[Rfam]
RNA sequence: GCAUGUGUGAUGUGACAAAACAGAAUGAGAAGCUGUGAUGCUGUAAACGCUUUCUGAUGUG
Numbered sequence: 001g002c003a004u005g006u007g008u009g010a011u012g013u014g015a016c017a018a019a020a021c022a023g024a025a026u027g028a029g030a031a032g033c034u035g036u037g038a039u040g041c042u043g044u045a046a047a048c049g050c051u052u053u054c055u056g057a058u059g060u061g
Stems, first nucleotide, its partner, number of pairs: 002061004012053001014051001016049001021043003025039002
This 61-nucleotide RNA sequence from Smithornis capensis belongs to the Rfam family "Small nucleolar RNA Z39". Rfam 15.1 lists 935 matches to the family in 520 species. For this family Rfam cites "The high diversity of snoRNAs in plants: identification and comparative study of 120 snoRNA genes from Oryza sativa" (Chen et al., Nucleic Acids Res, 2003). By type it is a C/D-box small nucleolar RNA. The organism belongs to Smithornis, within Eukaryota.